[Rfam]
A member of the RNA family "ASpks TB sRNA" from Streptomyces monashensis, 75 nucleotides long.
The match comes from Rfam's covariance-model search (82 bits).
RNA sequence: CUUCAACGAGCCGAGCCACAGCGGCUUCUGCGGAUCCCGGCCCUGUCCGUACGUGGCCAGCAGCGCCUGCGCCUC
Dot-bracket structure: .............((((.....))))....((.....((...(((.(((....))).)))...))....))....

The family's consensus secondary structure is taken from published work.